[Rfam]
RNA sequence: GAUCAUUCCGAGGGGUGCCCCGACCAGGGCUGAGAUGGUGUGAGCCGAACCCUUAGAACCUGAUCCGGGUUGUGCCGGCGUAGGGACGGGAUAAGGGACGCCA
Numbered sequence: 001g002a003u004c005a006u007u008c009c010g011a012g013g014g015g016u017g018c019c020c021c022g023a024c025c026a027g028g029g030c031u032g033a034g035a036u037g038g039u040g041u042g043a044g045c046c047g048a049a050c051c052c053u054u055a056g057a058a059c060c061u062g063a064u065c066c067g068g069g070u071u072g073u074g075c076c077g078g079c080g081u082a083g084g085g086a087c088g089g090g091a092u093a094a095g096g097g098a099c100g101c102c103a
Stems, first nucleotide, its partner, number of pairs: 006091005011053004016047001017030004037046003059084004065078004
Rfam assigns this 103-nucleotide sequence from Rhizobiales bacterium GAS113 to the family "TPP riboswitch aptamer (THI element)". Gene Ontology term of the family: thiamine pyrophosphate binding. A search with the family's covariance model found it, with a score of 78 bits. The source organism's lineage runs through Bacteria, Pseudomonadati, Pseudomonadota, Alphaproteobacteria and Hyphomicrobiales.